The family of this 101-nucleotide RNA sequence from Lactuca sativa is "Small nucleolar RNA Z43". Pairs were carried over by alignment from the consensus structure, which was predicted with PFOLD. The source organism's lineage runs through Eukaryota, Streptophyta, Embryophyta, Mesangiospermae and Lactuca. Rfam 15.1 lists 859 matches to the family in 240 species. It is annotated as a C/D-box small nucleolar RNA.
RNA sequence: GGGCUAUGACGACUCCAUGUGAUAAGGUCUCGUUCGUCGUAAUGGUGAUGCAAAUCACCUUGCCGACCAAACUGUUAUAUCACCACCCAUAAACUGAGUCC
Numbered sequence: 001g002g003g004c005u006a007u008g009a010c011g012a013c014u015c016c017a018u019g020u021g022a023u024a025a026g027g028u029c030u031c032g033u034u035c036g037u038c039g040u041a042a043u044g045g046u047g048a049u050g051c052a053a054a055u056c057a058c059c060u061u062g063c064c065g066a067c068c069a070a071a072c073u074g075u076u077a078u079a080u081c082a083c084c085a086c087c088c089a090u091a092a093a094c095u096g097a098g099u100c101c
Stems, first nucleotide, its partner, number of pairs: 001101004047061002